The family of this 68-nucleotide sequence from Spodoptera litura is "mir-2 microRNA precursor family".

RNA sequence: GGGGUCAGCAAAGUGGCUGUGUCUUAUGAGGUCAAUGAACAUAUCACAGCCAGCUUUGUUGACUUCUU
Number, nucleotide and partner (000 for none) at each position: 001g000002g000003g000004g000005u062006c061007a060008g059009c058010a057011a056012a055013g054014u052015g051016g050017c049018u048019g047020u046021g045022u000023c000024u000025u043026a042027u041028g000029a000030g000031g000032u000033c000034a000035a000036u000037g000038a000039a000040c000041a027042u026043a025044u000045c021046a020047c019048a018049g017050c016051c015052a014053g000054c013055u012056u011057u010058g009059u008060u007061g006062a005063c000064u000065u000066c000067u000068u000
Background: The organism belongs to Spodoptera, within Eukaryota.